Rfam assigns this 82-nucleotide RNA to the family "PhotoRC-II RNA".

RNA sequence: UUCCUUAAAAACGGUCCCACCAGGUUCGACCUUAAACGCCUUAAUAUCUCUACUGGAGGGUGGUAGAGAAAUACUUAUUACC
Numbered sequence: 001u002u003c004c005u006u007a008a009a010a011a012c013g014g015u016c017c018c019a020c021c022a023g024g025u026u027c028g029a030c031c032u033u034a035a036a037c038g039c040c041u042u043a044a045u046a047u048c049u050c051u052a053c054u055g056g057a058g059g060g061u062g063g064u065a066g067a068g069a070a071a072u073a074c075u076u077a078u079u080a081c082c
Base pairs, nucleotide, nucleotide: 014030015029016028022041023040024039025038047069048068049067050066051065052064053063